The record is a 106-nucleotide RNA sequence from Bacillus mesophilum, which matches "SAM riboswitch aptamer (S box leader)" in Rfam. The match comes from Rfam's covariance-model search (90 bits). Lineage of the source: Bacteria > Bacillati > Bacillota > Bacilli > Bacillus. The base pairs follow the family's consensus structure, which is taken from published work. From the family's description: The SAM riboswitch is found upstream of a number of genes which code for proteins involved in methionine or cysteine biosynthesis in Gram-positive bacteria.

RNA sequence: UUCUUAUCUAGAGAGGCGGAGGGACUGGCCCUAUGACACCUCGGCAGCGGCUUCCAUAUGAAGUUUGUGCCAAAUCCAGCAAGCUGAAGAGCUUGAAAGAUAAGGA
Numbered sequence: 001u002u003c004u005u006a007u008c009u010a011g012a013g014a015g016g017c018g019g020a021g022g023g024a025c026u027g028g029c030c031c032u033a034u035g036a037c038a039c040c041u042c043g044g045c046a047g048c049g050g051c052u053u054c055c056a057u058a059u060g061a062a063g064u065u066u067g068u069g070c071c072a073a074a075u076c077c078a079g080c081a082a083g084c085u086g087a088a089g090a091g092c093u094u095g096a097a098a099g100a101u102a103a104g105g106a
Base pairs, nucleotide, nucleotide: 001106002105003104004103005102006101007100008099013042014041015040016039021031022030023029025079026078027077028076043071044070045069046068048067049066050064051063052062053061075098080095081094082093083092084091085090